[Rfam]
RNA sequence: UAAUGUAAUUUAAAGAAAAAGCGUAUAAUUUCGGGAAUAUGGCCCAGAGUUUCUACCAGACCACCGUAAACGGUCUGACUACGCAGUUAUGGUUAGUUUGC
Numbered sequence: 001u002a003a004u005g006u007a008a009u010u011u012a013a014a015g016a017a018a019a020a021g022c023g024u025a026u027a028a029u030u031u032c033g034g035g036a037a038u039a040u041g042g043c044c045c046a047g048a049g050u051u052u053c054u055a056c057c058a059g060a061c062c063a064c065c066g067u068a069a070a071c072g073g074u075c076u077g078a079c080u081a082c083g084c085a086g087u088u089a090u091g092g093u094u095a096g097u098u099u100g101c
Base pairs, nucleotide, nucleotide: 018087021084022083023082024081025080029048030047031046033045034044035043057077058076059075060074061073062072
RNA: Purine riboswitch aptamer
Organism: Oceanobacillus zhaokaii